[Rfam]
RNA: Bacillaceae-1 RNA
RNA sequence: AUUUGAGGAAGUUCUGCUAAAAGCAGGCACGUCCUGUGCCUAACGCAGAACCUAGCGCAUCGUGUGCG
Numbered sequence: 001a002u003u004u005g006a007g008g009a010a011g012u013u014c015u016g017c018u019a020a021a022a023g024c025a026g027g028c029a030c031g032u033c034c035u036g037u038g039c040c041u042a043a044c045g046c047a048g049a050a051c052c053u054a055g056c057g058c059a060u061c062g063u064g065u066g067c068g
Stems, first nucleotide, its partner, number of pairs: 011051007026040005055067004